Shown here is a 92-nucleotide RNA from Herbidospora galbida, a member of the family "Selenocysteine transfer RNA". The match comes from Rfam's covariance-model search (76 bits).

[Rfam]
RNA sequence: GGGGACGUGCAGGUGCCUGGUGGCCCUCCCGGUCUUCAAAACCGGUGGCGCCGAGGAUCUCGGCGCGGCGGGUUCGAUUCCCGUCCGUCUCC
Numbered sequence: 001g002g003g004g005a006c007g008u009g010c011a012g013g014u015g016c017c018u019g020g021u022g023g024c025c026c027u028c029c030c031g032g033u034c035u036u037c038a039a040a041a042c043c044g045g046u047g048g049c050g051c052c053g054a055g056g057a058u059c060u061c062g063g064c065g066c067g068g069c070g071g072g073u074u075c076g077a078u079u080c081c082c083g084u085c086c087g088u089c090u091c092c
Stems, first nucleotide, its partner, number of pairs: 001092007009084001012027002015024003029045005048066005069083004
Description:
The organism belongs to Herbidospora, within Bacteria.